[Rfam]
RNA sequence: CAUGUCGUUAAAAUGUUUGUGACCUUAUGUACUCUUGAAUCAUAUCACAGCCAUUUUGACGAGUUUGG
Numbered sequence: 001c002a003u004g005u006c007g008u009u010a011a012a013a014u015g016u017u018u019g020u021g022a023c024c025u026u027a028u029g030u031a032c033u034c035u036u037g038a039a040u041c042a043u044a045u046c047a048c049a050g051c052c053a054u055u056u057u058g059a060c061g062a063g064u065u066u067g068g
Base pairs, nucleotide, nucleotide: 005062006061007060008059009058010057011056012055013054014053015052017050018049019048020047021046022045026044027043028042
This 68-nucleotide RNA sequence from Drosophila persimilis belongs to the Rfam family "mir-2 microRNA precursor family". A reference for the family is Ambros (2001), "microRNAs: tiny regulators with great potential", Cell.